[Rfam]
The family of this 71-nucleotide sequence from Nicotiana tabacum is "MIR6151 microRNA precursor family". The base pairs follow the family's consensus structure, which was predicted with RNAalifold. The organism belongs to Nicotiana, within Eukaryota. Rfam 15.1 lists 930 matches to the family in 3 species. Gene Ontology terms of the family: miRNA-mediated post-transcriptional gene silencing and RISC complex.

RNA sequence: AUUCGUUGGAUGAAUGUGAGGCAUUGGAUUGAUUUUGUUAGAUCCGAGCCCCACAUUCAUUAAGAGUUCGU
Numbered sequence: 001a002u003u004c005g006u007u008g009g010a011u012g013a014a015u016g017u018g019a020g021g022c023a024u025u026g027g028a029u030u031g032a033u034u035u036u037g038u039u040a041g042a043u044c045c046g047a048g049c050c051c052c053a054c055a056u057u058c059a060u061u062a063a064g065a066g067u068u069c070g071u
Base pairs, nucleotide, nucleotide: 004066006064007063009061010060011059012058013057014056015055016054017053018052020050021049022048024047025046026045027044028043029042030041032039